RNA sequence: GGGUCGGGAGCGCUGCAUUUUAGCGGUGCGUAGAACUUCGGUUCUCCUGGCCG
Numbered sequence: 001g002g003g004u005c006g007g008g009a010g011c012g013c014u015g016c017a018u019u020u021u022a023g024c025g026g027u028g029c030g031u032a033g034a035a036c037u038u039c040g041g042u043u044c045u046c047c048u049g050g051c052c053g
Stems, first nucleotide, its partner, number of pairs: 002052007010029007032045005
Shown here is a 53-nucleotide RNA from Acidipila sp. EB88, a member of the family "DUF3800-VI RNA". Pairs were carried over by alignment from the consensus structure, which is taken from published work. The match comes from Rfam's covariance-model search (48 bits). It is annotated as a cis-regulatory element.